RNA sequence: AGGAGGAAAAACCGCAGUGGCGGGGCCAGCUCUGGAGCCCUGGAUUCAGCUCCCUCAGUAACUACAGAGCUCUCCAUCUGCAGAGGCCUGGAUGCUCUGGGGGUGU
Numbered sequence: 001a002g003g004a005g006g007a008a009a010a011a012c013c014g015c016a017g018u019g020g021c022g023g024g025g026c027c028a029g030c031u032c033u034g035g036a037g038c039c040c041u042g043g044a045u046u047c048a049g050c051u052c053c054c055u056c057a058g059u060a061a062c063u064a065c066a067g068a069g070c071u072c073u074c075c076a077u078c079u080g081c082a083g084a085g086g087c088c089u090g091g092a093u094g095c096u097c098u099g100g101g102g103g104u105g106u
Stems, first nucleotide, its partner, number of pairs: 002098004007093001010089001012086002019078002022075004028071007036063001040058003